This 219-nucleotide RNA sequence from Eragrostis curvula belongs to the Rfam family "Plant small nucleolar RNA U3". The base pairs follow the family's consensus structure, which is taken from published work. The literature on the family includes a 1997 paper in Nucleic Acids Res by Zwieb, "The uRNA database". The family is grouped with related families in Rfam's "U3 clan". A search with the family's covariance model found it, with a score of 190 bits. Rfam 15.1 lists 3,759 matches to the family in 258 species. The organism belongs to Eragrostis, within Eukaryota. Rfam describes the family as follows. Small nucleolar RNAs (snoRNAs) are involved in the processing and modification of rRNA in the nucleolus. There are two main classes of snoRNAs: the box C/D class, and the box H/ACA class. U3 snoRNA is a member of the box C/D class. Indeed, the box C/D element is a subset of the six short sequence elements found in all U3 snoRNAs, namely boxes A, A', B, C, C', and D. The U3 snoRNA secondary structure is characterised by a small 5' domain (with boxes A and A'), and a larger 3' domain (with boxes B, C, C', and D), the two domains being linked by a single-stranded hinge. Boxes B and C form the B/C motif, which appears to be exclusive to U3 snoRNAs, and boxes C' and D form the C'/D motif. The latter is functionally similar to the C/D motifs found in other snoRNAs. The 5' domain and the hinge region act as a pre-rRNA-binding domain. The 3' domain has conserved protein-binding sites. Both the box B/C and box C'/D motifs are sufficient for nuclear retention of U3 snoRNA. The box C'/D motif is also necessary for nucleolar localisation, stability and hyper-methylation of U3 snoRNA. Both box B/C and C'/D motifs are involved in specific protein interactions and are necessary for the rRNA processing functions of U3 snoRNA. The family's RNA type in Rfam is C/D-box small nucleolar RNA.

RNA sequence: ACGACCUUACUUGAACAGGAUCUGUUCUAUAGGAUCGUACCGCUGCAUCCUUGACUAAUAAGGAGGCAAGCACUCAAGCUUGGUUGAUGACUCAUGACCUGUGGGCCAGAGCGUGAUUAACGGCUAGGAUUGGUGCAUAACGCUCCUUCUGGCGCUGUAGAGGAUCGUUCCUGUCCAGGCUUGCCUUGAUGGGGUGGCCCACGGGUUGUCUGACAAGCU
Numbered sequence: 001a002c003g004a005c006c007u008u009a010c011u012u013g014a015a016c017a018g019g020a021u022c023u024g025u026u027c028u029a030u031a032g033g034a035u036c037g038u039a040c041c042g043c044u045g046c047a048u049c050c051u052u053g054a055c056u057a058a059u060a061a062g063g064a065g066g067c068a069a070g071c072a073c074u075c076a077a078g079c080u081u082g083g084u085u086g087a088u089g090a091c092u093c094a095u096g097a098c099c100u101g102u103g104g105g106c107c108a109g110a111g112c113g114u115g116a117u118u119a120a121c122g123g124c125u126a127g128g129a130u131u132g133g134u135g136c137a138u139a140a141c142g143c144u145c146c147u148u149c150u151g152g153c154g155c156u157g158u159a160g161a162g163g164a165u166c167g168u169u170c171c172u173g174u175c176c177a178g179g180c181u182u183g184c185c186u187u188g189a190u191g192g193g194g195u196g197g198c199c200c201a202c203g204g205g206u207u208g209u210c211u212g213a214c215a216a217g218c219u
Stems, first nucleotide, its partner, number of pairs: 001038002003035001005033003013027006044068003048064006078218005097206012110169004120158005127150003132146002135143002171192005177186003